[Rfam]
RNA sequence: GGCUGGUCCAACUGCAGUAGUGCUUACAACGAAUUGAUCACAACCAGUUACAGAUGUUUUUGUUCCUUCUCCACUCCCAUUGCUUUACUUGACUACUCUUUU
Numbered sequence: 001g002g003c004u005g006g007u008c009c010a011a012c013u014g015c016a017g018u019a020g021u022g023c024u025u026a027c028a029a030c031g032a033a034u035u036g037a038u039c040a041c042a043a044c045c046a047g048u049u050a051c052a053g054a055u056g057u058u059u060u061u062g063u064u065c066c067u068u069c070u071c072c073a074c075u076c077c078c079a080u081u082g083c084u085u086u087a088c089u090u091g092a093c094u095a096c097u098c099u100u101u102u
Base pairs, nucleotide, nucleotide: 001098002097004095005094006093007092008091010090011089014086016081017080018079020077022076028064029063030062032060033059
Y RNA: a 102-nucleotide sequence from Microcebus murinus. It scores 63 bits against the family's covariance model. The family's RNA type in Rfam is non-coding RNA gene. Rfam 15.1 lists 26,986 matches to the family in 650 species.